RNA sequence: GCAGGCCUUGCGGGAGAGAUGUCGAUCGCCGACACGCCGACGGAGCAACCCCCCAGGAAACUCUCAGGCAGAAAGACCGUCAGGCUGAA
Numbered sequence: 001g002c003a004g005g006c007c008u009u010g011c012g013g014g015a016g017a018g019a020u021g022u023c024g025a026u027c028g029c030c031g032a033c034a035c036g037c038c039g040a041c042g043g044a045g046c047a048a049c050c051c052c053c054c055a056g057g058a059a060a061c062u063c064u065c066a067g068g069c070a071g072a073a074a075g076a077c078c079g080u081c082a083g084g085c086u087g088a089a
Base pairs, nucleotide, nucleotide: 006084007083008082010080011079012078013077020034021033022032023031036069037068038067039065040064043063044062045061049056
This 89-nucleotide sequence from Sinorhizobium saheli belongs to the Rfam family "Glycine riboswitch aptamer".
Taxonomically the source falls in Sinorhizobium (Bacteria, Pseudomonadati, Alphaproteobacteria, Hyphomicrobiales).